RNA sequence: GGGCGCGUAGCUCAGGGGUAGAGCUCUCGGCUUACAACCGAGCGGUCGGCGGUUCGAAACCGUCCGCGCCCA
Dot-bracket structure: (((((((..((((.......)))).(((((.......))))).....(((((.......)))))))))))).
Numbered sequence: 001g002g003g004c005g006c007g008u009a010g011c012u013c014a015g016g017g018g019u020a021g022a023g024c025u026c027u028c029g030g031c032u033u034a035c036a037a038c039c040g041a042g043c044g045g046u047c048g049g050c051g052g053u054u055c056g057a058a059a060c061c062g063u064c065c066g067c068g069c070c071c072a
Stems, first nucleotide, its partner, number of pairs: 001071007010024004026042005048064005